[Rfam]
RNA sequence: GACUAUGGAGAUAAGAACACAGUCCCGGCUGGUAGUCCGGGCAUACCGCUGGGGGUAAGAUCCCUGGGGUAUCAGUAACCUGCCUCCUUGGUUGUCCAUUCUCCGGAUACCAUUU
Numbered sequence: 001g002a003c004u005a006u007g008g009a010g011a012u013a014a015g016a017a018c019a020c021a022g023u024c025c026c027g028g029c030u031g032g033u034a035g036u037c038c039g040g041g042c043a044u045a046c047c048g049c050u051g052g053g054g055g056u057a058a059g060a061u062c063c064c065u066g067g068g069g070u071a072u073c074a075g076u077a078a079c080c081u082g083c084c085u086c087c088u089u090g091g092u093u094g095u096c097c098a099u100u101c102u103c104c105g106g107a108u109a110c111c112a113u114u115u
Stems, first nucleotide, its partner, number of pairs: 004107001006105006022042002025040004043072005082092003
RNA: azaaromatic riboswitch aptamer (yjdF RNA)
Organism: Oscillibacter sp. PC13